[Rfam]
RNA: SAM riboswitch aptamer (S box leader)
Organism: Planomicrobium sp. YIM 101495
RNA sequence: CUCUUAUCAAGAGCGGCGGAGGGAAUAGGCCCUGCGAUGCCCGGCAACCGGCAAAUCACUCAAUUUGCAAAGGUGCUAAAUCCUACAGCCCGUGUACGACGGCGCUGGCAGAUGAGAG
Numbered sequence: 001c002u003c004u005u006a007u008c009a010a011g012a013g014c015g016g017c018g019g020a021g022g023g024a025a026u027a028g029g030c031c032c033u034g035c036g037a038u039g040c041c042c043g044g045c046a047a048c049c050g051g052c053a054a055a056u057c058a059c060u061c062a063a064u065u066u067g068c069a070a071a072g073g074u075g076c077u078a079a080a081u082c083c084u085a086c087a088g089c090c091c092g093u094g095u096a097c098g099a100c101g102g103c104g105c106u107g108g109c110a111g112a113u114g115a116g117a118g
Stems, first nucleotide, its partner, number of pairs: 001118008013042001015041003021032003026085004043077004048073002051068005081110001086107004091102001